[Rfam]
RNA: glmS glucosamine-6-phosphate activated ribozyme aptamer
RNA sequence: AGUAUCACUCAAGCGCCAGAGCUUGCGCGGGUUAUUAUAGCUGCUGUGUUUCGUCCAUAAUGGAAAUGGACGCACGGCGUACCACCGGCUGUAUUAAUCGGCAAGCUGACGAGGUGGAGGUGUUCGAAUGUUCGGCGGGGACCUCCCGGUAUUGCAUUUGACCGUAAGCCGAUACUCAAAUAGACUGGGCAACUGGUCUGACAAAAGUUCGGUAAAAUGCUCU
Numbered sequence: 001a002g003u004a005u006c007a008c009u010c011a012a013g014c015g016c017c018a019g020a021g022c023u024u025g026c027g028c029g030g031g032u033u034a035u036u037a038u039a040g041c042u043g044c045u046g047u048g049u050u051u052c053g054u055c056c057a058u059a060a061u062g063g064a065a066a067u068g069g070a071c072g073c074a075c076g077g078c079g080u081a082c083c084a085c086c087g088g089c090u091g092u093a094u095u096a097a098u099c100g101g102c103a104a105g106c107u108g109a110c111g112a113g114g115u116g117g118a119g120g121u122g123u124u125c126g127a128a129u130g131u132u133c134g135g136c137g138g139g140g141a142c143c144u145c146c147c148g149g150u151a152u153u154g155c156a157u158u159u160g161a162c163c164g165u166a167a168g169c170c171g172a173u174a175c176u177c178a179a180a181u182a183g184a185c186u187g188g189g190c191a192a193c194u195g196g197u198c199u200g201a202c203a204a205a206a207g208u209u210c211g212g213u214a215a216a217a218u219g220c221u222c223u
Base pairs, nucleotide, nucleotide: 020107021106022105023104024103025102026101029098116146117145118144119143120142124135125134126133127132147164148163149162150161168213169212170211171210172209182199183198184197185196186195187194188193
Dot-bracket structure: ...................(((((((..(....................................................................)..)))))))........(((((...((((....))))......)))))((((..........))))...(((((.........(((((((....))))))).........)))))..........